[Rfam]
RNA: Small nucleolar RNA SNORD25
Organism: Solanum commersonii
RNA sequence: AACAACAAUGAUGAUUAAUUUUUUACAGUUACAGACCUGUAAUGAUUUGCGAAGAUGAUCGCAAUUAAUUGAACAUCUAAGGGACUGAGUUGUU
Numbered sequence: 001a002a003c004a005a006c007a008a009u010g011a012u013g014a015u016u017a018a019u020u021u022u023u024u025a026c027a028g029u030u031a032c033a034g035a036c037c038u039g040u041a042a043u044g045a046u047u048u049g050c051g052a053a054g055a056u057g058a059u060c061g062c063a064a065u066u067a068a069u070u071g072a073a074c075a076u077c078u079a080a081g082g083g084a085c086u087g088a089g090u091u092g093u094u
Stems, first nucleotide, its partner, number of pairs: 002093005